Rfam assigns this 36-nucleotide sequence from Williamwhitmania taraxaci to the family "DUF805b RNA".
The family's RNA type in Rfam is cis-regulatory element.

RNA sequence: AUGGAAGAAGCCGAAAAUCCAAUAAAAGAGUAGGUA
Numbered sequence: 001a002u003g004g005a006a007g008a009a010g011c012c013g014a015a016a017a018u019c020c021a022a023u024a025a026a027a028g029a030g031u032a033g034g035u036a
Stems, first nucleotide, its partner, number of pairs: 002021004010035003
Notes: The organism belongs to Williamwhitmania, within Bacteria.